The record is an 88-nucleotide RNA from Nyssa sinensis, which matches "small nucleolar RNA snoR117" in Rfam. The literature on the family includes a 2009 paper in Nucleic Acids Res by Chen and Wu, "Mining small RNA sequencing data: a new approach to identify small nucleolar RNAs in Arabidopsis". The family's consensus secondary structure was predicted with RNAalifold. The family's RNA type in Rfam is C/D-box small nucleolar RNA. The organism belongs to Nyssa, within Eukaryota.
RNA sequence: GGCCUGUGAUGUAAUGAGAUUGUCCGUACCAUCUGAGAUCUUUAGAUCCAAUAUUUGAUGUGUAAUCAUAUCUACUUGUCUGAGGCCU
Numbered sequence: 001g002g003c004c005u006g007u008g009a010u011g012u013a014a015u016g017a018g019a020u021u022g023u024c025c026g027u028a029c030c031a032u033c034u035g036a037g038a039u040c041u042u043u044a045g046a047u048c049c050a051a052u053a054u055u056u057g058a059u060g061u062g063u064a065a066u067c068a069u070a071u072c073u074a075c076u077u078g079u080c081u082g083a084g085g086c087c088u
Stems, first nucleotide, its partner, number of pairs: 001087004